Rfam assigns this 182-nucleotide sequence from Coregonus sp. 'balchen' to the family "U2 spliceosomal RNA". By type it is a spliceosomal small nuclear RNA. The source organism's lineage runs through Eukaryota, Bilateria, Euteleostomi, Euteleosteomorpha and Coregonus.

[Rfam]
RNA sequence: AUAAUUUUUUCUCACAAAAAAAAAAAAAAUCUGUUCUUAUCAGUUUAAUAUCUGAUACGUCCCCCAUUGGGGGACUACAUAUUAAAUGGAUUUUUCGAACAGGGAGUCGGAAAUGGGGCUUGCUCCGUCCGCUCCACACAUCGACCCGGUAUUGCAGUACCUCCGGGAACGGUGCAACACUU
Numbered sequence: 001a002u003a004a005u006u007u008u009u010u011c012u013c014a015c016a017a018a019a020a021a022a023a024a025a026a027a028a029a030u031c032u033g034u035u036c037u038u039a040u041c042a043g044u045u046u047a048a049u050a051u052c053u054g055a056u057a058c059g060u061c062c063c064c065c066a067u068u069g070g071g072g073g074a075c076u077a078c079a080u081a082u083u084a085a086a087u088g089g090a091u092u093u094u095u096c097g098a099a100c101a102g103g104g105a106g107u108c109g110g111a112a113a114u115g116g117g118g119c120u121u122g123c124u125c126c127g128u129c130c131g132c133u134c135c136a137c138a139c140a141u142c143g144a145c146c147c148g149g150u151a152u153u154g155c156a157g158u159a160c161c162u163c164c165g166g167g168a169a170c171g172g173u174g175c176a177a178c179a180c181u182u
Stems, first nucleotide, its partner, number of pairs: 007020004038057006059075007103135005109129002115126004139174005145167005
Gene Ontology terms of the family: pre-mRNA branch point binding, mRNA branch site recognition and U2 snRNP. U2 is a small nuclear RNA (snRNA) component of the spliceosome (involved in pre-mRNA splicing). It scores 126 bits against the family's covariance model.